Nucleotides: 100
Stems, first nucleotide, its partner, number of pairs: 003097002011036002016031006034086001039093004044089003047084003
Number, partner (000 for none) and nucleotide at each position: 001000c002000u003097c004096g005000u006000c007000c008000a009000a010000g011036g012035c013000a014000a015000a016031c017030c018029u019028a020027g021026u022000g023000a024000a025000a026021g027020c028019u029018a030017g031016g032000g033000a034086c035012g036011c037000a038000a039093a040092g041091u042090u043000a044089c045088c046087g047084g048083u049082c050000u051000u052000a053000g054000a055000u056000c057000a058000u059000u060000u061000c062000u063000c064000g065000c066000a067000a068000g069000a070000g071000u072000u073000a074000a075000u076000g077000a078000u079000g080000a081000u082049g083048a084047c085000a086034g087046c088045g089044g090042g091041a092040c093039u094000g095000c096004c097003g098000a099000c100000u